mir-574 microRNA precursor family: an 83-nucleotide RNA sequence from Cnephaeus nilssonii. Gene Ontology terms of the family: RISC complex and miRNA-mediated post-transcriptional gene silencing. NCBI's taxonomy places the organism under Eukaryota, Bilateria, Euteleostomi, Dipnotetrapodomorpha, Cnephaeus. Its Rfam clan is "mir-574 microRNA precursor clan". The match comes from Rfam's covariance-model search (85 bits). A reference for the family is Lui et al. (2007), "Patterns of known and novel small RNAs in human cervical cancer", Cancer Res.
[Rfam]
RNA sequence: AGGCUUGGUGAAAGAGAGGAAGGGUCUGAUCCAUAGCCUCCGUGGCAGCUGUUGAUCAGCCAUUGCCUCUCUCUUUCUCUCCG
Numbered sequence: 001a002g003g004c005u006u007g008g009u010g011a012a013a014g015a016g017a018g019g020a021a022g023g024g025u026c027u028g029a030u031c032c033a034u035a036g037c038c039u040c041c042g043u044g045g046c047a048g049c050u051g052u053u054g055a056u057c058a059g060c061c062a063u064u065g066c067c068u069c070u071c072u073c074u075u076u077c078u079c080u081c082c083g
Stems, first nucleotide, its partner, number of pairs: 010075002013072007021064002024061001026059006034051004